[Rfam]
RNA sequence: UGGCGUCCAGCAUGGGCCUUGAUACUGGGGGAUAACGUGAGGGUCCGAUGAUGAAGAUAAGAAGAAGGGGUGCGCACUGAUCAAACAAUAGCUCAGAGACGUCGUGGUAGCCUGCUGUGACUGAGCCAACAGGUAAGUUGGUCGUUUAAUCAUGGGGCAAGAAUUGAGUCAGCAUCAGAAAUAUGUAAUACAGUUAAAAGAAGCUUUACAGGCAAGAGGAGUAAAGGUUACAACUGAGGAUUUAUUUCAUUUCUUUGAUUUUGUAAAAGACAUCUGCCCAU
Numbered sequence: 001u002g003g004c005g006u007c008c009a010g011c012a013u014g015g016g017c018c019u020u021g022a023u024a025c026u027g028g029g030g031g032a033u034a035a036c037g038u039g040a041g042g043g044u045c046c047g048a049u050g051a052u053g054a055a056g057a058u059a060a061g062a063a064g065a066a067g068g069g070g071u072g073c074g075c076a077c078u079g080a081u082c083a084a085a086c087a088a089u090a091g092c093u094c095a096g097a098g099a100c101g102u103c104g105u106g107g108u109a110g111c112c113u114g115c116u117g118u119g120a121c122u123g124a125g126c127c128a129a130c131a132g133g134u135a136a137g138u139u140g141g142u143c144g145u146u147u148a149a150u151c152a153u154g155g156g157g158c159a160a161g162a163a164u165u166g167a168g169u170c171a172g173c174a175u176c177a178g179a180a181a182u183a184u185g186u187a188a189u190a191c192a193g194u195u196a197a198a199a200g201a202a203g204c205u206u207u208a209c210a211g212g213c214a215a216g217a218g219g220a221g222u223a224a225a226g227g228u229u230a231c232a233a234c235u236g237a238g239g240a241u242u243u244a245u246u247u248c249a250u251u252u253c254u255u256u257g258a259u260u261u262u263g264u265a266a267a268a269g270a271c272a273u274c275u276g277c278c279c280a281u
Stems, first nucleotide, its partner, number of pairs: 006030003013024002036050003091134003100125001103119005143157001145156004165208003168204002216256006225243005266281001269278001271276001
Mason-Pfizer monkey virus packaging signal: a 281-nucleotide RNA from Nannospalax galili. The family's RNA type in Rfam is cis-regulatory element. NCBI's taxonomy places the organism under Eukaryota, Metazoa, Vertebrata, Tetrapoda, Nannospalax. It scores 136 bits against the family's covariance model. The family has 9 seed sequences and 2,921 matches in Rfam 15.1. For this family Rfam cites "Mutational analysis of the predicted secondary RNA structure of the Mason-Pfizer monkey virus packaging signal" (Mustafa et al., Virus Res, 2004). From the family's description: This family represents a group of sequences that are related to the Mason-Pfizer monkey virus (MPMV) packaging signal. The packaging signal is located in the 5' UTR and is required for specific RNA encapsidation.